A member of the RNA family "mir-927 microRNA precursor family" from Anopheles gambiae, 87 nucleotides long. Lineage of the source: Eukaryota > Protostomia > Altocrustacea > Culicomorpha > gambiae species complex. The sequence is in the family's curated seed alignment.
[Rfam]
RNA sequence: UAGUUAAUGGUUUGUUUUAGAAUUCCUACGCUUUACCCGUGAUUAAAGUAGUGCGGCAAAGCGUUUGGAUUCUGAAACGAAACGUUA
Numbered sequence: 001u002a003g004u005u006a007a008u009g010g011u012u013u014g015u016u017u018u019a020g021a022a023u024u025c026c027u028a029c030g031c032u033u034u035a036c037c038c039g040u041g042a043u044u045a046a047a048g049u050a051g052u053g054c055g056g057c058a059a060a061g062c063g064u065u066u067g068g069a070u071u072c073u074g075a076a077a078c079g080a081a082a083c084g085u086u087a
Base pairs, nucleotide, nucleotide: 011080012079014078015077016076017075018074019073020072021071023069024068025067028064029063030062031061032060033059034058036056037055
Pairs were carried over by alignment from the consensus structure, which was predicted with RNAalifold. For this family Rfam cites "Evolutionary flux of canonical microRNAs and mirtrons in Drosophila" (Berezikov et al., Nat Genet, 2010).